[Rfam]
RNA sequence: CUGUGUCAAUGAUGCACUUUUACCUACAUUGUUCGAUGAUCCUUGAGAGAAACUUUGAUACUGAGACACUG
Numbered sequence: 001c002u003g004u005g006u007c008a009a010u011g012a013u014g015c016a017c018u019u020u021u022a023c024c025u026a027c028a029u030u031g032u033u034c035g036a037u038g039a040u041c042c043u044u045g046a047g048a049g050a051a052a053c054u055u056u057g058a059u060a061c062u063g064a065g066a067c068a069c070u071g
Stems, first nucleotide, its partner, number of pairs: 001071001004068004
RNA: Small nucleolar RNA SNORD34
Organism: Accipiter nisus